[Rfam]
RNA sequence: GCUGAGCUCAGUAACGUGGGCUUGUAACCCAAGUGGGGGCUUUAAGGUGUUGGGACGUUGUUUGAGCCCUUAUGGCAGGAUCAGGCUUGGCUAAUUUCUGGCUUGCCCGUUCCAAGCUGAGAGUUAAACCAUGGGACCUGGGCGAAGGCUUGGGUCUCCUAGUUCCUAGAGCAGAGGGUAAUGCGUGAGGCUGGCUUCACAGAGCAGCGAUUACCUCUCGCUCCCAGCAGUGGAAGGAUAACAGGUCAGUGCCAUCACUUUUUUCCCAUUCACAUUUUAUUUUUUAAAAAAAAUAUUUGA
Numbered sequence: 001g002c003u004g005a006g007c008u009c010a011g012u013a014a015c016g017u018g019g020g021c022u023u024g025u026a027a028c029c030c031a032a033g034u035g036g037g038g039g040c041u042u043u044a045a046g047g048u049g050u051u052g053g054g055a056c057g058u059u060g061u062u063u064g065a066g067c068c069c070u071u072a073u074g075g076c077a078g079g080a081u082c083a084g085g086c087u088u089g090g091c092u093a094a095u096u097u098c099u100g101g102c103u104u105g106c107c108c109g110u111u112c113c114a115a116g117c118u119g120a121g122a123g124u125u126a127a128a129c130c131a132u133g134g135g136a137c138c139u140g141g142g143c144g145a146a147g148g149c150u151u152g153g154g155u156c157u158c159c160u161a162g163u164u165c166c167u168a169g170a171g172c173a174g175a176g177g178g179u180a181a182u183g184c185g186u187g188a189g190g191c192u193g194g195c196u197u198c199a200c201a202g203a204g205c206a207g208c209g210a211u212u213a214c215c216u217c218u219c220g221c222u223c224c225c226a227g228c229a230g231u232g233g234a235a236g237g238a239u240a241a242c243a244g245g246u247c248a249g250u251g252c253c254a255u256c257a258c259u260u261u262u263u264u265c266c267c268a269u270u271c272a273c274a275u276u277u278u279a280u281u282u283u284u285u286a287a288a289a290a291a292a293a294u295a296u297u298u299g300a
Stems, first nucleotide, its partner, number of pairs: 001040003004023007028037003051300001053298001055296001057294001058292002061288006071279002074276002078267002083262003088254003092251002098249008107237002110235005116228004121223004127164003131160001133158011166171001173218005184209003191202003
Rfam assigns this 300-nucleotide RNA sequence from Manihot esculenta to the family "Plant signal recognition particle RNA".
Its family is annotated with SRP-dependent cotranslational protein targeting to membrane, signal sequence recognition and signal recognition particle, endoplasmic reticulum targeting in the Gene Ontology.
Lineage of the source: Eukaryota > Euphyllophyta > Mesangiospermae > fabids > Manihot.
The family's RNA type in Rfam is non-coding RNA gene.
It scores 199 bits against the family's covariance model.